[Rfam]
RNA sequence: UCAGCGGGUGGCGACUGGCGCAGACGGUGGGUUAACCACGGGGAAGCCUCCUGAAAUUCAGACUUGAUCGUGCGCCUGGGUCAGACAC
Numbered sequence: 001u002c003a004g005c006g007g008g009u010g011g012c013g014a015c016u017g018g019c020g021c022a023g024a025c026g027g028u029g030g031g032u033u034a035a036c037c038a039c040g041g042g043g044a045a046g047c048c049u050c051c052u053g054a055a056a057u058u059c060a061g062a063c064u065u066g067a068u069c070g071u072g073c074g075c076c077u078g079g080g081u082c083a084g085a086c087a088c
Stems, first nucleotide, its partner, number of pairs: 005053004010048003015043002017076005027039004065083005
RNA: ZMP/ZTP riboswitch aptamer (pfl RNA motif)